[Rfam]
RNA: TPP riboswitch aptamer (THI element)
Organism: Streptomyces alkaliphilus
RNA sequence: UAGAGCACCCGCGGGAGUCCGGACGCACCGGGCUGAGAGGGGGGCUGGCCGGCCCCCGACCGUACGCACCUGAUCCGGGUCAUGCCGGCGAAGGGAGGAGCAGUCCUCGUGAC
Numbered sequence: 001u002a003g004a005g006c007a008c009c010c011g012c013g014g015g016a017g018u019c020c021g022g023a024c025g026c027a028c029c030g031g032g033c034u035g036a037g038a039g040g041g042g043g044g045c046u047g048g049c050c051g052g053c054c055c056c057c058g059a060c061c062g063u064a065c066g067c068a069c070c071u072g073a074u075c076c077g078g079g080u081c082a083u084g085c086c087g088g089c090g091a092a093g094g095g096a097g098g099a100g101c102a103g104u105c106c107u108c109g110u111g112a113c
Stems, first nucleotide, its partner, number of pairs: 009098002011063004017033005040057007069094003075088004